[Rfam]
RNA sequence: GGCACCUUUAACUUAGUCCAGAGAGGCUAAAAAGGAGGCUACAAUUAUGUAUGCAUAUAACAUGGAACCUGGCUAACCCAAGCGGCUUUUUUUUGCCGUGGGGUUAGCUUUUU
Numbered sequence: 001g002g003c004a005c006c007u008u009u010a011a012c013u014u015a016g017u018c019c020a021g022a023g024a025g026g027c028u029a030a031a032a033a034g035g036a037g038g039c040u041a042c043a044a045u046u047a048u049g050u051a052u053g054c055a056u057a058u059a060a061c062a063u064g065g066a067a068c069c070u071g072g073c074u075a076a077c078c079c080a081a082g083c084g085g086c087u088u089u090u091u092u093u094u095g096c097c098g099u100g101g102g103g104u105u106a107g108c109u110u111u112u113u
Stems, first nucleotide, its partner, number of pairs: 003037001005035005013030006038069001040067001042065001044063002048059004072108008081099001083098004
RNA: PyrR binding site
Organism: Dethiobacter alkaliphilus